[Rfam]
RNA sequence: AGCUUUGCGCAGUGGCAGUAUCGUAGCCAAUGAGGUUUAUCCGAGGCGCGAUUAUUGCUAAUUGAAGUUCCAUGUGCCUUUCAGAAGAAUAAGUAUUCUGUUGUUUUAAGGUGGAAUAUUCUGUAUGUAUUAUGCAAACAAUG
Number, nucleotide and partner (000 for none) at each position: 001a000002g000003c000004u000005u000006u000007g000008c000009g000010c000011a000012g000013u000014g000015g000016c000017a000018g000019u000020a052021u051022c050023g049024u048025a000026g047027c046028c045029a000030a000031u000032g000033a000034g042035g041036u000037u000038u000039a000040u000041c035042c034043g000044a000045g028046g027047c026048g024049c023050g022051a021052u020053u000054a000055u000056u000057g000058c000059u000060a000061a000062u000063u000064g000065a000066a000067g000068u000069u000070c000071c000072a000073u000074g000075u000076g000077c000078c000079u115080u114081u113082c111083a000084g000085a000086a107087g106088a105089a104090u103091a102092a000093g000094u000095a000096u000097u000098c000099u000100g000101u000102u091103g090104u089105u088106u087107u086108a000109a000110g000111g082112u000113g081114g080115a079116a000117u000118a000119u000120u000121c000122u000123g000124u000125a000126u000127g000128u000129a000130u000131u000132a000133u000134g000135c000136a000137a000138a000139c000140a000141a000142u000143g000
The record is a 143-nucleotide RNA sequence from Neogale vison, which matches "U4 spliceosomal RNA" in Rfam.
The base pairs follow the family's consensus structure, which is taken from published work.
Rfam classes the family as a spliceosomal small nuclear RNA.
Taxonomically the source falls in Neogale (Eukaryota, Teleostomi, Euteleostomi, Tetrapoda).
About the family: U4 small nuclear RNA (U4 snRNA) is a component of the major U2-dependent spliceosome.